[Rfam]
RNA sequence: AUGGCCGACGCUGAAAAGCCUUAAAAAGAGUAAGCA
Numbered sequence: 001a002u003g004g005c006c007g008a009c010g011c012u013g014a015a016a017a018g019c020c021u022u023a024a025a026a027a028g029a030g031u032a033a034g035c036a
Stems, first nucleotide, its partner, number of pairs: 003020003010035003

This 36-nucleotide RNA from Pedobacter sp. Hv1 belongs to the Rfam family "DUF805b RNA".
The family's RNA type in Rfam is cis-regulatory element.